[Rfam]
RNA sequence: AUGCAUCCAAUAGGAAUUAGAACCUACAAAUUCACCAAUUAUGUGUUCGACGCUUUGACCAUUCAGCCAUGGAUGU
Number, nucleotide and partner (000 for none) at each position: 001a000002u000003g076004c075005a074006u073007c072008c071009a000010a000011u026012a025013g024014g023015a000016a000017u000018u000019a000020g000021a000022a000023c014024c013025u012026a011027c000028a000029a000030a000031u000032u000033c000034a000035c000036c000037a000038a000039u000040u000041a070042u069043g068044u000045g067046u066047u065048c000049g063050a062051c000052g060053c000054u000055u000056u000057g000058a000059c000060c052061a000062u050063u049064c000065a047066g046067c045068c043069a042070u041071g008072g007073a006074u005075g004076u003
RNA: Plastid-ycf2 5UTR RNA